RNA sequence: UGGUCAUCAGUUCACCAAGGCGUCGCCAGUCCAGCCGGACCCAGCUAAACCUGAUA
Numbered sequence: 001u002g003g004u005c006a007u008c009a010g011u012u013c014a015c016c017a018a019g020g021c022g023u024c025g026c027c028a029g030u031c032c033a034g035c036c037g038g039a040c041c042c043a044g045c046u047a048a049a050c051c052u053g054a055u056a
Base pairs, nucleotide, nucleotide: 001017002016003015004014029040030039031038032037
The family of this 56-nucleotide sequence from Yoonia tamlensis is "COG3860 RNA". A search with the family's covariance model found it, with a score of 58 bits. Pairs were carried over by alignment from the consensus structure, which is taken from published work. The organism belongs to Yoonia, within Bacteria. By type it is a cis-regulatory element.